Record summary:
The record is a 73-nucleotide RNA from Spiroplasma mirum, which matches "tRNA" in Rfam. It is annotated as a transfer RNA. The family's consensus secondary structure is taken from published work. The source organism's lineage runs through Bacteria, Mollicutes, Spiroplasmataceae, Spiroplasma and Spiroplasma mirum. Its family is annotated with triplet codon-amino acid adaptor activity in the Gene Ontology.
[Rfam]
RNA sequence: CUCCUGUUAGCUCAGUUGGGAGAGCAACUGGCUUUUAACCAGUGGGUCAAAGGUUCAAGUCCUUUACAGGAGA
Numbered sequence: 001c002u003c004c005u006g007u008u009a010g011c012u013c014a015g016u017u018g019g020g021a022g023a024g025c026a027a028c029u030g031g032c033u034u035u036u037a038a039c040c041a042g043u044g045g046g047u048c049a050a051a052g053g054u055u056c057a058a059g060u061c062c063u064u065u066a067c068a069g070g071a072g073a
Stems, first nucleotide, its partner, number of pairs: 001072007010025004027043005049065005